[Rfam]
RNA: Small Cajal body specific RNA 23
Organism: Cavia porcellus
Nucleotides: 125
Stems, first nucleotide, its partner, number of pairs: 003054006011043003016039004024031002065121001067119005073111003078107007086097002089094001
Number, partner (000 for none) and nucleotide at each position: 001000g002000u003054g004053c005052u006051c007050a008049c009000u010000g011043g012042g013041c014000u015000u016039g017038g018037u019036c020000u021000u022000c023000u024031c025030c026000a027000u028000g029000u030025g031024g032000u033000c034000c035000u036019g037018a038017c039016c040000u041013g042012c043011c044000c045000a046000c047000u048000u049008g050007u051006g052005a053004g054003c055000a056000a057000g058000a059000g060000a061000a062000u063000u064000g065121g066000a067119a068118c069117u070116g071115g072000u073111u074110u075109g076000g077000g078107g079106g080105u081104g082103u083102c084101c085000u086097g087096u088000c089094u090000g091000a092000g093000u094089g095000a096087a097086c098000a099000u100000u101084g102083g103082a104081c105080a106079c107078c108000a109075c110074a111073g112000u113000u114000u115071u116070c117069a118068g119067u120000a121065c122000a123000a124000c125000a